[Rfam]
RNA sequence: GGAUUGGGUGAUGAAUUAGAAGAAGUUAUUGUCGAGAAAACGAAACAGACACUAGCUUCAGUAUCAUCAGGACCAAAACACACCCA
Numbered sequence: 001g002g003a004u005u006g007g008g009u010g011a012u013g014a015a016u017u018a019g020a021a022g023a024a025g026u027u028a029u030u031g032u033c034g035a036g037a038a039a040a041c042g043a044a045a046c047a048g049a050c051a052c053u054a055g056c057u058u059c060a061g062u063a064u065c066a067u068c069a070g071g072a073c074c075a076a077a078a079c080a081c082a083c084c085c086a
Stems, first nucleotide, its partner, number of pairs: 001074002004071002007068005022059002025056004030051004
RNA: Human rhinovirus internal cis-acting regulatory element (CRE)
Organism: Enterovirus betarhino